[Rfam]
RNA: Ribosomal protein L10 leader
Organism: Geobacillus kaustophilus
RNA sequence: AAAUGAAUAUCAUUUGUACCGUAGACAGUAGGUGCCUGUUUGAGGCUUAAUUUCCUACCGAGGUAUGUGGACGAUAGAACAGCGCGCCCUGCGUCGGGGACGAGCGGCGGUGCGUUGAACGACACCUCCAUGUCUACGCGGCAUGGAGGUUUUUUAUUGAGCAGA
Numbered sequence: 001a002a003a004u005g006a007a008u009a010u011c012a013u014u015u016g017u018a019c020c021g022u023a024g025a026c027a028g029u030a031g032g033u034g035c036c037u038g039u040u041u042g043a044g045g046c047u048u049a050a051u052u053u054c055c056u057a058c059c060g061a062g063g064u065a066u067g068u069g070g071a072c073g074a075u076a077g078a079a080c081a082g083c084g085c086g087c088c089c090u091g092c093g094u095c096g097g098g099g100a101c102g103a104g105c106g107g108c109g110g111u112g113c114g115u116u117g118a119a120c121g122a123c124a125c126c127u128c129c130a131u132g133u134c135u136a137c138g139c140g141g142c143a144u145g146g147a148g149g150u151u152u153u154u155u156a157u158u159g160a161g162c163a164g165a
Stems, first nucleotide, its partner, number of pairs: 028058005034046003124150010